[Rfam]
RNA: RNase MRP
Organism: Centaurea solstitialis
RNA sequence: UGACCAACGGACGAUGUGAUUGGGCUAUGGAUCCAUGCAAAUGGGUUCGGGCUCAGGAAAGUCCCCGGGCCGCUUUGCCACAGAGAUGUGGGCUCGGAAACGAGUUAAGCUUCAGAGCGACUGAAUCCGAUCAGACCCUUUGGGUUUGAUGGGCUGAGACCAGUGUGGAGCUUAAUGGGUUCUGAACGCCUGAAGUGAAGCUUGGCCGAAUAAUACAGUCAUUCACAUGGUCCAAGUUGUGACUAACUGAACGGGGCUUAUGAUCCGUUGGUC
Number, nucleotide and partner (000 for none) at each position: 001u000002g000003a000004c000005c000006a000007a268008c267009g266010g265011a264012c000013g000014a228015u227016g226017u225018g224019a223020u000021u055022g054023g053024g052025c051026u050027a000028u000029g048030g047031a046032u045033c044034c043035a042036u000037g000038c000039a000040a000041a000042u035043g034044g033045g032046u031047u030048c029049g000050g026051g025052c024053u023054c022055a021056g000057g000058a000059a259060a258061g257062u000063c256064c255065c254066c253067g000068g000069g000070c000071c000072g000073c000074u000075u000076u000077g000078c000079c090080a089081c088082a087083g000084a000085g000086a000087u082088g081089u080090g079091g106092g105093c104094u103095c102096g101097g000098a000099a000100a000101c096102g095103a094104g093105u092106u091107a000108a000109g000110c000111u000112u000113c000114a000115g000116a000117g000118c000119g000120a000121c000122u000123g000124a000125a000126u000127c000128c000129g000130a000131u199132c000133a000134g000135a000136c000137c000138c195139u194140u193141u192142g191143g190144g000145u000146u000147u188148g187149a000150u185151g182152g181153g180154c179155u000156g000157a000158g000159a000160c000161c000162a000163g000164u000165g000166u000167g000168g000169a000170g000171c000172u000173u000174a000175a000176u000177g000178g000179g154180u153181u152182c151183u000184g000185a150186a000187c148188g147189c000190c143191u142192g141193a140194a139195g138196u000197g000198a000199a131200g000201c000202u000203u000204g000205g000206c000207c000208g000209a000210a000211u000212a000213a000214u000215a000216c000217a000218g000219u000220c000221a000222u000223u019224c018225a017226c016227a015228u014229g000230g243231u242232c241233c000234a000235a000236g000237u000238u000239g000240u000241g232242a231243c230244u000245a000246a000247c000248u000249g000250a000251a000252c000253g066254g065255g064256g063257c061258u060259u059260a000261u000262g000263a000264u011265c010266c009267g008268u007269u000270g000271g000272u000273c000